Rfam assigns this 165-nucleotide sequence from Actinobacillus indolicus to the family "Actinobacillus sRNA 14".
The match comes from Rfam's covariance-model search (134 bits).
Arrc stands for Actinobacillus pleuropneumoniae Regulatory RNA Candidate. May control the expression of ferric permease (gene afuB2) and ferredoxin (fdx). TargetRNA2 was used for the predictions.
By type it is a small RNA.

RNA sequence: UUCCAAAUAACAAUGCAAACAUAAACACACAACAAUGGUAAAACUCUCUUCUCUGAACCUGCUUCUUCUCACGCAUUCUGUGCGAGGAUAAGACUCGGUUAGAGAAAAUAGUUCACUAUCCACACUUAGCCCGCACAUCAAAAUGCGGGCUUUUUUUUAUUUGUG
Numbered sequence: 001u002u003c004c005a006a007a008u009a010a011c012a013a014u015g016c017a018a019a020c021a022u023a024a025a026c027a028c029a030c031a032a033c034a035a036u037g038g039u040a041a042a043a044c045u046c047u048c049u050u051c052u053c054u055g056a057a058c059c060u061g062c063u064u065c066u067u068c069u070c071a072c073g074c075a076u077u078c079u080g081u082g083c084g085a086g087g088a089u090a091a092g093a094c095u096c097g098g099u100u101a102g103a104g105a106a107a108a109u110a111g112u113u114c115a116c117u118a119u120c121c122a123c124a125c126u127u128a129g130c131c132c133g134c135a136c137a138u139c140a141a142a143a144u145g146c147g148g149g150c151u152u153u154u155u156u157u158u159a160u161u162u163g164u165g
Stems, first nucleotide, its partner, number of pairs: 013022003036122003042113004047108001050105002053102002056100004061095001063093002066090001069087001072084005129150007